Small nucleolar RNA SNORA9: a 133-nucleotide RNA sequence from Nothocercus julius. Rfam 15.1 lists 1,202 matches to the family in 518 species. By type it is an H/ACA-box small nucleolar RNA. A search with the family's covariance model found it, with a score of 93 bits.
[Rfam]
RNA sequence: CCGCAAGGCUUCCAGCGUGGCGGGGCCUGCGGUGGCCCCGCGCACUCCUGCAGCGCUUGCCAGAGCAACUGGAGGUGGUUUGAGGUCUCCCGCCGCCCUCCCCGGCGGGGGGCUCUAGAAGCCUCGGACAGGC
Numbered sequence: 001c002c003g004c005a006a007g008g009c010u011u012c013c014a015g016c017g018u019g020g021c022g023g024g025g026c027c028u029g030c031g032g033u034g035g036c037c038c039c040g041c042g043c044a045c046u047c048c049u050g051c052a053g054c055g056c057u058u059g060c061c062a063g064a065g066c067a068a069c070u071g072g073a074g075g076u077g078g079u080u081u082g083a084g085g086u087c088u089c090c091c092g093c094c095g096c097c098c099u100c101c102c103c104g105g106c107g108g109g110g111g112g113c114u115c116u117a118g119a120a121g122c123c124u125c126g127g128a129c130a131g132g133c
Base pairs, nucleotide, nucleotide: 003060004059005058006057007056009055018044019043023038024037025036026035027034072125073124074123075122086112087111088110089109090108091107093105094104095103